[Rfam]
RNA sequence: UUUCCCAUUUGACUACCACAUUUUCUCCUAAUGGUAGAUUUUAGUGGCUAUGCUUAUGGGAUAGAUUAAAGUUGCCGUGAUCUGAAGGAGGAGGGUUUUUCAGUGUCCUCCUUCUAUAUGAAAUGGCUGAACAUAAAGUU
Number, nucleotide and partner (000 for none) at each position: 001u000002u000003u000004c060005c059006c058007a057008u000009u000010u000011g000012a000013c000014u000015a000016c047017c046018a045019c044020a000021u000022u000023u000024u000025c000026u000027c000028c000029u000030a000031a000032u000033g000034g000035u000036a000037g000038a000039u000040u000041u000042u000043a000044g019045u018046g017047g016048c000049u000050a000051u000052g000053c000054u000055u000056a000057u007058g006059g005060g004061a000062u000063a000064g000065a000066u000067u000068a000069a000070a000071g000072u000073u000074g127075c126076c125077g124078u000079g000080a000081u000082c000083u000084g000085a000086a000087g000088g000089a000090g000091g000092a115093g114094g113095g112096u000097u000098u000099u000100u000101c000102a000103g000104u000105g000106u000107c000108c000109u000110c000111c000112u095113u094114c093115u092116a000117u000118a000119u000120g000121a000122a000123a000124u077125g076126g075127c074128u000129g000130a000131a000132c000133a000134u000135a000136a000137a000138g000139u000140u000
Shown here is a 140-nucleotide RNA sequence from Otolemur garnettii, a member of the family "Small nucleolar RNA SNORA29". Pairs were carried over by alignment from the consensus structure, which was predicted with PFOLD. Taxonomically the source falls in Otolemur (Eukaryota, Eumetazoa, Sarcopterygii, Strepsirrhini). The literature on the family includes a 2001 paper in EMBO J by Huttenhofer et al., "RNomics: an experimental approach that identifies 201 candidates for novel, small, non-messenger RNAs in mouse". Rfam links the family to the GO terms RNA processing and nucleolus. The sequence is in the family's curated seed alignment. The family is grouped with related families in Rfam's "SNORA20 clan".